[Rfam]
RNA sequence: CCCCCACCUAUGUAUAUAGGACCCUAAAAGAUCACCAUUAAAGUUGGCACGGAUCUUCAGAAAAGUUAUCAUAUGGAUGUGGGACUUGACUUUUCUAUAAAUUCGUGCCAAAUUUAAUGGUGAUCUUUUGGGGUCCUACACACAUAGGUGGGGA
Numbered sequence: 001c002c003c004c005c006a007c008c009u010a011u012g013u014a015u016a017u018a019g020g021a022c023c024c025u026a027a028a029a030g031a032u033c034a035c036c037a038u039u040a041a042a043g044u045u046g047g048c049a050c051g052g053a054u055c056u057u058c059a060g061a062a063a064a065g066u067u068a069u070c071a072u073a074u075g076g077a078u079g080u081g082g083g084a085c086u087u088g089a090c091u092u093u094u095c096u097a098u099a100a101a102u103u104c105g106u107g108c109c110a111a112a113u114u115u116a117a118u119g120g121u122g123a124u125c126u127u128u129u130g131g132g133g134u135c136c137u138a139c140a141c142a143c144a145u146a147g148g149u150g151g152g153g154a
Stems, first nucleotide, its partner, number of pairs: 002153012015140001017138012030125003034121009044111011056099001059096010069082005
A member of the RNA family "MIR8565 microRNA precursor family" from Amborella trichopoda, 154 nucleotides long. The organism belongs to Amborella, within Eukaryota. The base pairs follow the family's consensus structure, which was predicted with RNAalifold.